[Rfam]
RNA sequence: CGACCCGGGUGCCGUUUGGCCUCGGUCCGCUCGGCUAUCGGCCCUGGCGCACCUUCCCCGGCGCCAGGUUCGACGGGCGGGCGGGGACCUGACUGCAUCCGAUUCCGGUU
Numbered sequence: 001c002g003a004c005c006c007g008g009g010u011g012c013c014g015u016u017u018g019g020c021c022u023c024g025g026u027c028c029g030c031u032c033g034g035c036u037a038u039c040g041g042c043c044c045u046g047g048c049g050c051a052c053c054u055u056c057c058c059c060g061g062c063g064c065c066a067g068g069u070u071c072g073a074c075g076g077g078c079g080g081g082c083g084g085g086g087a088c089c090u091g092a093c094u095g096c097a098u099c100c101g102a103u104u105c106c107g108g109u110u
Base pairs, nucleotide, nucleotide: 010097011096012095014093015092016091018089019088021086022085023084025082026081027080028079029078030077031076032075038073039072040071041070043068044067045066046065047064048063049062050061

mraW RNA: a 110-nucleotide RNA sequence from Kutzneria sp. 744.
The organism belongs to Kutzneria, within Bacteria.
Pairs were carried over by alignment from the consensus structure, which is taken from published work.